[Rfam]
Nucleotides: 079
Base pairs, nucleotide, nucleotide: 002078003077004076005075006074007073008072012028013027014026015025020064021063031049032042033041034040054071055070056069057068058067
Number, partner (000 for none) and nucleotide at each position: 001000u002078u003077u004076a005075u006074c007073c008072a009000a010000a011000a012028a013027u014026a015025g016000a017000a018000c019000a020064g021063g022000c023000a024000g025015c026014u027013a028012u029000c030000a031049c032042g033041c034040c035000c036000u037000a038000g039000u040034g041033g042032u043000c044000u045000u046000a047000a048000a049031g050000a051000g052000a053000u054071a055070c056069c057068g058067g059000a060000g061000g062000a063021c064020c065000a066000c067058u068057c069056g070055g071054u072008u073007g074006g075005a076004u077003a078002a079000u